[Rfam]
RNA sequence: CGAGCUGGCCGGGCAGUCGCUGUCUCAUUUCUCUGAAAUGGGGUGGAGGAAAGUCCGGGCUCCAUAGGGUAAGGCGCCAGGUAACGCCUGGGGGGCGUGAGCCUACGGAAAGUGCAGCAGAGAGUAGACCGCCUAAGUCUACUCCGGCAACGGAGUAGACCGGUAAGGGUGAAAGGGUGCGGUAAGAGCGCACCGCGUGACUGGUAACAGUUCAUGGCACGGUAAACCCCGCCUGGAGCAAGGCCAAAUAGGGAUUCGAUGGUGUGACCCGCACUGAAUCCGGGUAGGCUGCUAGAGGUGCAUGGUGACAUGCAUCCCAGAUGAAUGACUGUCAGACCUGUUCGCAGGUGCUACAGAACCCGGCUUAUAGGCCAGCUCGCCAC
Numbered sequence: 001c002g003a004g005c006u007g008g009c010c011g012g013g014c015a016g017u018c019g020c021u022g023u024c025u026c027a028u029u030u031c032u033c034u035g036a037a038a039u040g041g042g043g044u045g046g047a048g049g050a051a052a053g054u055c056c057g058g059g060c061u062c063c064a065u066a067g068g069g070u071a072a073g074g075c076g077c078c079a080g081g082u083a084a085c086g087c088c089u090g091g092g093g094g095g096c097g098u099g100a101g102c103c104u105a106c107g108g109a110a111a112g113u114g115c116a117g118c119a120g121a122g123a124g125u126a127g128a129c130c131g132c133c134u135a136a137g138u139c140u141a142c143u144c145c146g147g148c149a150a151c152g153g154a155g156u157a158g159a160c161c162g163g164u165a166a167g168g169g170u171g172a173a174a175g176g177g178u179g180c181g182g183u184a185a186g187a188g189c190g191c192a193c194c195g196c197g198u199g200a201c202u203g204g205u206a207a208c209a210g211u212u213c214a215u216g217g218c219a220c221g222g223u224a225a226a227c228c229c230c231g232c233c234u235g236g237a238g239c240a241a242g243g244c245c246a247a248a249u250a251g252g253g254a255u256u257c258g259a260u261g262g263u264g265u266g267a268c269c270c271g272c273a274c275u276g277a278a279u280c281c282g283g284g285u286a287g288g289c290u291g292c293u294a295g296a297g298g299u300g301c302a303u304g305g306u307g308a309c310a311u312g313c314a315u316c317c318c319a320g321a322u323g324a325a326u327g328a329c330u331g332u333c334a335g336a337c338c339u340g341u342u343c344g345c346a347g348g349u350g351c352u353a354c355a356g357a358a359c360c361c362g363g364c365u366u367a368u369a370g371g372c373c374a375g376c377u378c379g380c381c382a383c
Base pairs, nucleotide, nucleotide: 001379002378003377004376005375006374007373008372009371010370011368012333013332014331015330016329017328018327020046021045022044023043024042025041026040027039028038051366052365053364055363056362057361058360059359060238061237062236063235067270068269069268070267072234073233074232075231076230077091078090079089080088081087092106093104094103095102096101107229108228112227113226114223115222129168130167131164132163133162137160138159139158140157141156142155143154144153145152146151176194177193178192179191180190181189195218196216197215198214199213200212201210202209203208242290243289244288245287252281253280254279255278256277257276261275262274263273264272265271297316298315299314300313301312302311303310304309
RNA: Bacterial RNase P class A
Organism: Oceanospirillales bacterium LUC14_002_19_P2